[Rfam]
The record is a 56-nucleotide RNA sequence from Gemmobacter megaterium, which matches "sul1 RNA" in Rfam. It is annotated as a riboswitch. Taxonomically the source falls in Gemmobacter (Bacteria, Pseudomonadati, Pseudomonadota, Paracoccaceae). The family's consensus secondary structure is taken from published work.

RNA sequence: CAUGGACCCGGUGCAAGCCCGGGUGGCUCUUCUGGCCGCUGAUCCGCCAGACAACC
Numbered sequence: 001c002a003u004g005g006a007c008c009c010g011g012u013g014c015a016a017g018c019c020c021g022g023g024u025g026g027c028u029c030u031u032c033u034g035g036c037c038g039c040u041g042a043u044c045c046g047c048c049a050g051a052c053a054a055c056c
Stems, first nucleotide, its partner, number of pairs: 006024006012017001031051006